[Rfam]
RNA sequence: GAAGGAAGUAAGCAUGAUAAUAUGCACAUAAAUUAAUUUGGGUAUUUAGGCCUACCAUUUUUUUAUGUCUUUUGGCUUUGAUUUUGGGGCAUAGUGCUGCAGCAAAAAC
Numbered sequence: 001g002a003a004g005g006a007a008g009u010a011a012g013c014a015u016g017a018u019a020a021u022a023u024g025c026a027c028a029u030a031a032a033u034u035a036a037u038u039u040g041g042g043u044a045u046u047u048a049g050g051c052c053u054a055c056c057a058u059u060u061u062u063u064u065a066u067g068u069c070u071u072u073u074g075g076c077u078u079u080g081a082u083u084u085u086g087g088g089g090c091a092u093a094g095u096g097c098u099g100c101a102g103c104a105a106a107a108a109c
Base pairs, nucleotide, nucleotide: 012025013024014023015022040092042090043089050082052080055075056074